[Rfam]
RNA sequence: GUUGCAAUAGGGCUUUUCAUAGGGCUGCUAGCGUAUUUUCAACUGCGAGCUGCCUUGUGAAAAGCAUUGUUGCUAA
Numbered sequence: 001g002u003u004g005c006a007a008u009a010g011g012g013c014u015u016u017u018c019a020u021a022g023g024g025c026u027g028c029u030a031g032c033g034u035a036u037u038u039u040c041a042a043c044u045g046c047g048a049g050c051u052g053c054c055u056u057g058u059g060a061a062a063a064g065c066a067u068u069g070u071u072g073c074u075a076a
Stems, first nucleotide, its partner, number of pairs: 004073007012065004017060004023054002028049002031046002
Dot-bracket structure: ...(((((((.((((.((((..((...((.((............)).))...))..)))).)))).)))))))...
mir-980 microRNA precursor family: a 76-nucleotide RNA sequence from Sitophilus oryzae.
Its family is annotated with miRNA-mediated post-transcriptional gene silencing and RISC complex in the Gene Ontology.
Rfam 15.1 lists 121 matches to the family in 99 species.
NCBI's taxonomy places the organism under Eukaryota, Pancrustacea, Neoptera, Eumetabola, Sitophilus.
The base pairs follow the family's consensus structure, which was predicted with RNAalifold.
It scores 62 bits against the family's covariance model.